Rfam assigns this 101-nucleotide sequence from Candidatus Colimorpha enterica to the family "Purine riboswitch aptamer". Rfam links the family to the GO term purine nucleobase biosynthetic process. The organism belongs to Candidatus Colimorpha, within Bacteria.
[Rfam]
RNA sequence: UCGGUAAGAAAACAAACAGUCGAUAUAUCUCAGAUAAUAAGGAUUUGAAGUUUCUACCCGGUCCCGUAACAGACCGGACUAUCGGCAACUGAACCGGUCAU
Numbered sequence: 001u002c003g004g005u006a007a008g009a010a011a012a013c014a015a016a017c018a019g020u021c022g023a024u025a026u027a028u029c030u031c032a033g034a035u036a037a038u039a040a041g042g043a044u045u046u047g048a049a050g051u052u053u054c055u056a057c058c059c060g061g062u063c064c065c066g067u068a069a070c071a072g073a074c075c076g077g078a079c080u081a082u083c084g085g086c087a088a089c090u091g092a093a094c095c096g097g098u099c100a101u
Stems, first nucleotide, its partner, number of pairs: 019086007030048006058077006